A member of the RNA family "Streptomyces RNA 5676" from Streptomyces morookaense, 130 nucleotides long. Rfam classes the family as a small RNA.
[Rfam]
RNA sequence: AGAUGAACGCAACACCCGGCCCGCAGGAGACUGCGGGCGACGCCGAGCCGGUACCUCCCCAGUACCGGUCAGGCCGUGCCAUCGCGCACACCGCCGGGGCCGCAGGCCCCGGGCAUCCUCACCGAUCGAA
Numbered sequence: 001a002g003a004u005g006a007a008c009g010c011a012a013c014a015c016c017c018g019g020c021c022c023g024c025a026g027g028a029g030a031c032u033g034c035g036g037g038c039g040a041c042g043c044c045g046a047g048c049c050g051g052u053a054c055c056u057c058c059c060c061a062g063u064a065c066c067g068g069u070c071a072g073g074c075c076g077u078g079c080c081a082u083c084g085c086g087c088a089c090a091c092c093g094c095c096g097g098g099g100c101c102g103c104a105g106g107c108c109c110c111g112g113g114c115a116u117c118c119u120c121a122c123c124g125a126u127c128g129a130a
Stems, first nucleotide, its partner, number of pairs: 004121003009117001019038008042074003047069001049067006076089004094112008123128001
Notes: From the family's description: Identified by deep sequencing of transcriptome at the end of exponential growth phase. Appears longer on northern blot than sequencing transcript. This indicates processing step. Streptomyces specific.